[Rfam]
RNA sequence: CCGGCUGUUCCAUCAGCUGUUCCCUACCCGGACAUGCGGAGCUGGCAACGGCUCGGUGUGAAGCUCCGGGGACAACGUAGCCGCCGGUCUAACCGGUACGCCGAGCCGCGAGGCAAGGUGGAAUCUGCUAGCACAAAUGCGGAUCGGAGC
Numbered sequence: 001c002c003g004g005c006u007g008u009u010c011c012a013u014c015a016g017c018u019g020u021u022c023c024c025u026a027c028c029c030g031g032a033c034a035u036g037c038g039g040a041g042c043u044g045g046c047a048a049c050g051g052c053u054c055g056g057u058g059u060g061a062a063g064c065u066c067c068g069g070g071g072a073c074a075a076c077g078u079a080g081c082c083g084c085c086g087g088u089c090u091a092a093c094c095g096g097u098a099c100g101c102c103g104a105g106c107c108g109c110g111a112g113g114c115a116a117g118g119u120g121g122a123a124u125c126u127g128c129u130a131g132c133a134c135a136a137a138u139g140c141g142g143a144u145c146g147g148a149g150c
Stems, first nucleotide, its partner, number of pairs: 002019006028069005033060005039054006083097005099120004106113002124143005
The family of this 150-nucleotide RNA from Comamonas flocculans is "Group II catalytic intron D1-D4-7". For this family Rfam cites "The ins and outs of group II introns" (Bonen and Vogel, Trends Genet, 2001). From the family's description: Group II introns are found in rRNA, tRNA and mRNA of organelles in fungi, plants and protists, and also in mRNA in bacteria. Taxonomically the source falls in Comamonas (Bacteria, Pseudomonadati, Betaproteobacteria, Burkholderiales). The match comes from Rfam's covariance-model search (125 bits). Pairs were carried over by alignment from the consensus structure.